[Rfam]
RNA sequence: CGAGAUGCACAGACGAUCGCCGGAUCCGUUUGGAUCGGGAGGAAAGUCCGGGCUCCACAGGGUAGGAUGCCGGGUAACGCCCGGUGAAGGUGACUUCGAGGACAGUGCCACAGAAAGCAAACCGCUGGCCUAGAGCCAGUAAGGGUGAAAGGGUGGUGUAAGAGACCACCGCGAGUUCGGUAACGGACUCGGCACGGCAAACCCCAUCCGGAGCAAGGCCAAGCAGAGGAGUCGGGUGACCCGCCCAUCGCCUCCUCGGGUAGGCUGCUCAGAGACUCUCGGUGACGGGAGUCCUAGAGGAAUGAUCGUCAGGCCCAGGCGGGUGACCGCCGAGGCACCACAGAACCCGGCUUACGUGGAUCUCGCUCC
Numbered sequence: 001c002g003a004g005a006u007g008c009a010c011a012g013a014c015g016a017u018c019g020c021c022g023g024a025u026c027c028g029u030u031u032g033g034a035u036c037g038g039g040a041g042g043a044a045a046g047u048c049c050g051g052g053c054u055c056c057a058c059a060g061g062g063u064a065g066g067a068u069g070c071c072g073g074g075u076a077a078c079g080c081c082c083g084g085u086g087a088a089g090g091u092g093a094c095u096u097c098g099a100g101g102a103c104a105g106u107g108c109c110a111c112a113g114a115a116a117g118c119a120a121a122c123c124g125c126u127g128g129c130c131u132a133g134a135g136c137c138a139g140u141a142a143g144g145g146u147g148a149a150a151g152g153g154u155g156g157u158g159u160a161a162g163a164g165a166c167c168a169c170c171g172c173g174a175g176u177u178c179g180g181u182a183a184c185g186g187a188c189u190c191g192g193c194a195c196g197g198c199a200a201a202c203c204c205c206a207u208c209c210g211g212a213g214c215a216a217g218g219c220c221a222a223g224c225a226g227a228g229g230a231g232u233c234g235g236g237u238g239a240c241c242c243g244c245c246c247a248u249c250g251c252c253u254c255c256u257c258g259g260g261u262a263g264g265c266u267g268c269u270c271a272g273a274g275a276c277u278c279u280c281g282g283u284g285a286c287g288g289g290a291g292u293c294c295u296a297g298a299g300g301a302a303u304g305a306u307c308g309u310c311a312g313g314c315c316c317a318g319g320c321g322g323g324u325g326a327c328c329g330c331c332g333a334g335g336c337a338c339c340a341c342a343g344a345a346c347c348c349g350g351c352u353u354a355c356g357u358g359g360a361u362c363u364c365g366c367u368c369c
Base pairs, nucleotide, nucleotide: 001365002364003363004362005361006360008358009357010356012310013309014308015307016306017305018304020039021038023036024035025034026033027032044353045352046351048350049349050348051347052346053213054212055211056210060242061241062240063239065209066208067207068206069205070084071083072082073081074080085099086097087096088095089094100204101203105202106201107198108197109196122144123143124140125139126138127137128136129135152170153169154168155167156166157165171193172191173190174189175188176187177186178185179184217266218265219264220263226257227256228255229254230253231252235245236244237243274293275292276291277290278289279288280287281286
Rfam assigns this 369-nucleotide sequence from Sorangiineae bacterium NIC37A_2 to the family "Bacterial RNase P class A". Rfam's curators write: Ribonuclease P (RNase P) is a ubiquitous endoribonuclease, found in archaea, bacteria and eukarya as well as chloroplasts and mitochondria. Rfam classes the family as a ribozyme.